[Rfam]
RNA: mir-274 microRNA precursor family
RNA sequence: AAUGUUGCAGUUUCGUUUUGUGACCGACACUAACGGGUAUUUUACAGGACAUACAGGAUUACUCGUUUUUGCGAUCACAAAUCCUGAAAUUGCAGCAA
Numbered sequence: 001a002a003u004g005u006u007g008c009a010g011u012u013u014c015g016u017u018u019u020g021u022g023a024c025c026g027a028c029a030c031u032a033a034c035g036g037g038u039a040u041u042u043u044a045c046a047g048g049a050c051a052u053a054c055a056g057g058a059u060u061a062c063u064c065g066u067u068u069u070u071g072c073g074a075u076c077a078c079a080a081a082u083c084c085u086g087a088a089a090u091u092g093c094a095g096c097a098a
Base pairs, nucleotide, nucleotide: 003097004096005095006094007093008092009091010090013087014086015085017081018080019079020078021077022076023075025073026072028071029070032067033066034065035064036063037062038061039060